Shown here is a 116-nucleotide RNA sequence from Callithrix jacchus, a member of the family "U4atac minor spliceosomal RNA". Gene Ontology terms of the family: pre-mRNA 5'-splice site binding, spliceosomal tri-snRNP complex assembly and mRNA 5'-splice site recognition. Taxonomically the source falls in Callithrix (Eukaryota, Craniata, Gnathostomata, Callithrix). Its Rfam clan is "U4 clan". U4atac is an essential component of the minor U12-type spliceosome complex which is required for removal of the rarer class of eukaryotic introns (AT-AC, U12-type). Rfam classes the family as a spliceosomal small nuclear RNA.
RNA sequence: ACCAUCCUUUUCUUGGGGUUGCAGUACUGUCCAAAGAGCAUGUAGUGAGGGCAGUACUGCUAACGUCUACAUGACACACCCACAUCAUGCUUUAGCUUGGUGUAAUUUUUGGAAAA
Numbered sequence: 001a002c003c004a005u006c007c008u009u010u011u012c013u014u015g016g017g018g019u020u021g022c023a024g025u026a027c028u029g030u031c032c033a034a035a036g037a038g039c040a041u042g043u044a045g046u047g048a049g050g051g052c053a054g055u056a057c058u059g060c061u062a063a064c065g066u067c068u069a070c071a072u073g074a075c076a077c078a079c080c081c082a083c084a085u086c087a088u089g090c091u092u093u094a095g096c097u098u099g100g101u102g103u104a105a106u107u108u109u110u111g112g113a114a115a116a
Base pairs, nucleotide, nucleotide: 006018007017008016009015021060022059023058024057026055027054028053029052030051031050032049038046039045082103083102084101085100086099087098089096090095